[Rfam]
RNA sequence: GAUCAGUGAUGAAAGUAGCCAAAUCUGAGCAUCAGAAGACCACCCAGUGUACCUGAUGCAUGAUCUCUAUAGUUCUGAGA
Numbered sequence: 001g002a003u004c005a006g007u008g009a010u011g012a013a014a015g016u017a018g019c020c021a022a023a024u025c026u027g028a029g030c031a032u033c034a035g036a037a038g039a040c041c042a043c044c045c046a047g048u049g050u051a052c053c054u055g056a057u058g059c060a061u062g063a064u065c066u067c068u069a070u071a072g073u074u075c076u077g078a079g080a
Stems, first nucleotide, its partner, number of pairs: 029059005037050001039048002
RNA: Small nucleolar RNA U2-19
Organism: Bos taurus